Shown here is a 161-nucleotide RNA from Cellulomonas gilvus, a member of the family "c-di-AMP riboswitch aptamer (ydaO/yuaA leader)". It scores 63 bits against the family's covariance model. Taxonomically the source falls in Cellulomonas gilvus (Bacteria, Bacillati, Actinomycetota, Cellulomonadaceae).
RNA sequence: GCAAGAGGUCCGCUCGAACCGCCGGCAGGGGCGGGGGACCCAAAUCUGGGCGCUCAGGCGCCCUUGGGGUGAAGCCCCGUCGUGGAGCGAUCCACGGCGAGGCCGGGUGUUCUCCCACCCGAACCCGACAGCUGACCUCGUAGGCGACAAGGAGAGGCACG
Numbered sequence: 001g002c003a004a005g006a007g008g009u010c011c012g013c014u015c016g017a018a019c020c021g022c023c024g025g026c027a028g029g030g031g032c033g034g035g036g037g038a039c040c041c042a043a044a045u046c047u048g049g050g051c052g053c054u055c056a057g058g059c060g061c062c063c064u065u066g067g068g069g070u071g072a073a074g075c076c077c078c079g080u081c082g083u084g085g086a087g088c089g090a091u092c093c094a095c096g097g098c099g100a101g102g103c104c105g106g107g108u109g110u111u112c113u114c115c116c117a118c119c120c121g122a123a124c125c126c127g128a129c130a131g132c133u134g135a136c137c138u139c140g141u142a143g144g145c146g147a148c149a150a151g152g153a154g155a156g157g158c159a160c161g
Stems, first nucleotide, its partner, number of pairs: 011146004019029002031141006041066002067126003075102002078099009105120004